[Rfam]
RNA sequence: GAAAGGCCGCAACACGCCAAAGCGGCUGGGUGUAUUACCGAGGCACCCCAAUUAGG
Numbered sequence: 001g002a003a004a005g006g007c008c009g010c011a012a013c014a015c016g017c018c019a020a021a022g023c024g025g026c027u028g029g030g031u032g033u034a035u036u037a038c039c040g041a042g043g044c045a046c047c048c049c050a051a052u053u054a055g056g
Stems, first nucleotide, its partner, number of pairs: 005027006028048006
About this RNA:
A member of the RNA family "S4-Clostridia ribosomal protein leader", 56 nucleotides long. Rfam's curators put it in the seed alignment.